Shown here is an 82-nucleotide sequence, a member of the family "Small nucleolar RNA SNORD18". The family's consensus secondary structure was predicted with PFOLD. Clan: SNORD18 clan. By type it is a C/D-box small nucleolar RNA. Rfam links the family to the GO terms nucleolus and RNA processing.

RNA sequence: GGAACAUGAUGAAGAACCAUUGGUCCGUGUUUCUGAUCAUCUCGUGAUGAAACUACAAUGAAGCACUCAUACUUCUGAUUCC
Numbered sequence: 001g002g003a004a005c006a007u008g009a010u011g012a013a014g015a016a017c018c019a020u021u022g023g024u025c026c027g028u029g030u031u032u033c034u035g036a037u038c039a040u041c042u043c044g045u046g047a048u049g050a051a052a053c054u055a056c057a058a059u060g061a062a063g064c065a066c067u068c069a070u071a072c073u074u075c076u077g078a079u080u081c082c
Stems, first nucleotide, its partner, number of pairs: 001082004